[Rfam]
RNA sequence: UAUUUCUGAGAAUUUCUUGAUGACUCUCUUAACUUAAGCAUAUCAAUAAGAGAAGGAAAAGGAAACAACAGUGAUUCCUGUAGUAAUGGCGAAUGAACUAGGAGAACCACUAACACUGAUUAAGACUGCUUGUCAAUGAGGAGGAAAACUUUUUCAUUAAAGUUUAAAUUUUCAAGAGUAGGAAGAAAAAGUGGCUAUAAAGAGAAGAGUAAAAAGGGACCUGAAAGAUUUUGAUUAAUCUUUUAUAAAGAGUGAAGAGCUUGUAGGGGAGAAUUUUAGUCUUUAGAAAAUAGUGAAGAGGAGUAAAUUUAUUUGGAAGUAUAGAUUGAACGAGUCAUAGUGUCGACUGAAUGGGAAAUACGACGAGAAAACUGAUAGCGAAGAAGUACUGUGAAGGAAAUUAGAAAAGGACUUAUGAGUAAGAGUGAAAAGACAGUGUAAAAAUUAUCAAGGGAA
Numbered sequence: 001u002a003u004u005u006c007u008g009a010g011a012a013u014u015u016c017u018u019g020a021u022g023a024c025u026c027u028c029u030u031a032a033c034u035u036a037a038g039c040a041u042a043u044c045a046a047u048a049a050g051a052g053a054a055g056g057a058a059a060a061g062g063a064a065a066c067a068a069c070a071g072u073g074a075u076u077c078c079u080g081u082a083g084u085a086a087u088g089g090c091g092a093a094u095g096a097a098c099u100a101g102g103a104g105a106a107c108c109a110c111u112a113a114c115a116c117u118g119a120u121u122a123a124g125a126c127u128g129c130u131u132g133u134c135a136a137u138g139a140g141g142a143g144g145a146a147a148a149c150u151u152u153u154u155c156a157u158u159a160a161a162g163u164u165u166a167a168a169u170u171u172u173c174a175a176g177a178g179u180a181g182g183a184a185g186a187a188a189a190a191g192u193g194g195c196u197a198u199a200a201a202g203a204g205a206a207g208a209g210u211a212a213a214a215a216g217g218g219a220c221c222u223g224a225a226a227g228a229u230u231u232u233g234a235u236u237a238a239u240c241u242u243u244u245a246u247a248a249a250g251a252g253u254g255a256a257g258a259g260c261u262u263g264u265a266g267g268g269g270a271g272a273a274u275u276u277u278a279g280u281c282u283u284u285a286g287a288a289a290a291u292a293g294u295g296a297a298g299a300g301g302a303g304u305a306a307a308u309u310u311a312u313u314u315g316g317a318a319g320u321a322u323a324g325a326u327u328g329a330a331c332g333a334g335u336c337a338u339a340g341u342g343u344c345g346a347c348u349g350a351a352u353g354g355g356a357a358a359u360a361c362g363a364c365g366a367g368a369a370a371a372c373u374g375a376u377a378g379c380g381a382a383g384a385a386g387u388a389c390u391g392u393g394a395a396g397g398a399a400a401u402u403a404g405a406a407a408a409g410g411a412c413u414u415a416u417g418a419g420u421a422a423g424a425g426u427g428a429a430a431a432g433a434c435a436g437u438g439u440a441a442a443a444a445u446u447a448u449c450a451a452g453g454g455a456a
Base pairs, nucleotide, nucleotide: 024055025053026052027051028050029049035042036041065072066071076103077102078101079100080099086094087093107354108353109352117156118155119154122151123150124149127146129144130143131142163296165293167291169290170289171288172287207281208280210278211277212276213275220268221267225241227240228239229238230237244248251261252260306327307326308325309324310323311322312321333348334347335346336345389396390395412423413422414421415420

Rfam assigns this 456-nucleotide part of an RNA from Entamoeba invadens to the family "Eukaryotic large subunit ribosomal RNA". The sequence is in the family's curated seed alignment. Its family is annotated with ribosome and structural constituent of ribosome in the Gene Ontology.